[Rfam]
The record is a 97-nucleotide sequence from Saccharobesus litoralis, which matches "Bacterial small signal recognition particle RNA" in Rfam. Rfam classes the family as a non-coding RNA gene. The family's consensus secondary structure is taken from published work. A reference for the family is Rosenblad et al. (2009), "Kinship in the SRP RNA family", RNA Biol. Lineage of the source: Bacteria > Pseudomonadati > Gammaproteobacteria > Alteromonadaceae > Saccharobesus.
RNA sequence: UGUCGGUUCUCUCGCAAUGAUAGCUUGUUAAUCUGGUCAGGCCCGGAAGGGAGCAGCCACAGCAAGUGACUCAUGUGCCGGGGUGUAGCUGGCGAGG
Numbered sequence: 001u002g003u004c005g006g007u008u009c010u011c012u013c014g015c016a017a018u019g020a021u022a023g024c025u026u027g028u029u030a031a032u033c034u035g036g037u038c039a040g041g042c043c044c045g046g047a048a049g050g051g052a053g054c055a056g057c058c059a060c061a062g063c064a065a066g067u068g069a070c071u072c073a074u075g076u077g078c079c080g081g082g083g084u085g086u087a088g089c090u091g092g093c094g095a096g097g
Stems, first nucleotide, its partner, number of pairs: 004091005010083005015075001017074004023067007034059004042051003